RNA sequence: UGGCUGCAGAAUAAAUUAUUCUGUGGCCACUUUGAGUUACGAUAGUUACUAUACUAAUUUACGAGAUUAUGAUAACUCCCUCAUAAGUGAUUAACUAUAAUAUUAUGGUAAGUAUCAUCUUGAAAUAUAGUAACCUAUGUAUCGUAAAUGUGUAUUGUCGUUAUCGUAAAUUAGUACCAACAUUAUCAUAAAUUAAGAUGGCCAUAGAAUAAGUUAUUCUGUGACCA
Numbered sequence: 001u002g003g004c005u006g007c008a009g010a011a012u013a014a015a016u017u018a019u020u021c022u023g024u025g026g027c028c029a030c031u032u033u034g035a036g037u038u039a040c041g042a043u044a045g046u047u048a049c050u051a052u053a054c055u056a057a058u059u060u061a062c063g064a065g066a067u068u069a070u071g072a073u074a075a076c077u078c079c080c081u082c083a084u085a086a087g088u089g090a091u092u093a094a095c096u097a098u099a100a101u102a103u104u105a106u107g108g109u110a111a112g113u114a115u116c117a118u119c120u121u122g123a124a125a126u127a128u129a130g131u132a133a134c135c136u137a138u139g140u141a142u143c144g145u146a147a148a149u150g151u152g153u154a155u156u157g158u159c160g161u162u163a164u165c166g167u168a169a170a171u172u173a174g175u176a177c178c179a180a181c182a183u184u185a186u187c188a189u190a191a192a193u194u195a196a197g198a199u200g201g202c203c204a205u206a207g208a209a210u211a212a213g214u215u216a217u218u219c220u221g222u223g224a225c226c227a
Base pairs, nucleotide, nucleotide: 001227002226003225005223006222007221008220009219010218011217012216013215014214016212017211018210019209020208021207022206023205024204025203026202027201028200029199031197032196033195037191038190039189041187042186043185044184045183046182052176053175054174055173056172057171058170059169060168061167062166065165066164067163069161070160071159074155081146087142088141089140092137094131095130096129097128098127099126101124103122108116